[Rfam]
The family of this 108-nucleotide RNA from Prevotella lacticifex is "SAM-I/IV (S-adenosyl methionine) riboswitch aptamer".
The match comes from Rfam's covariance-model search (54 bits).
Its Rfam clan is "SAM clan".
The base pairs follow the family's consensus structure, which is taken from published work.
RNA sequence: CGUAAACAUCAAGAGAUGCCUUGAAUGGCACACCUACCGAGCAGAAGAUAGCCACGGUGGUAAGAGUGAUGUGAAAAGCAUGUUGAACUUUUAAAAUGUAUCUUUAUG
Numbered sequence: 001c002g003u004a005a006a007c008a009u010c011a012a013g014a015g016a017u018g019c020c021u022u023g024a025a026u027g028g029c030a031c032a033c034c035u036a037c038c039g040a041g042c043a044g045a046a047g048a049u050a051g052c053c054a055c056g057g058u059g060g061u062a063a064g065a066g067u068g069a070u071g072u073g074a075a076a077a078g079c080a081u082g083u084u085g086a087a088c089u090u091u092u093a094a095a096a097u098g099u100a101u102c103u104u105u106a107u108g
Base pairs, nucleotide, nucleotide: 006072007071008070009069010068015031017030018029019028020027032061033060034059037057038056039055041052042051044104045103047101074092075091076090077089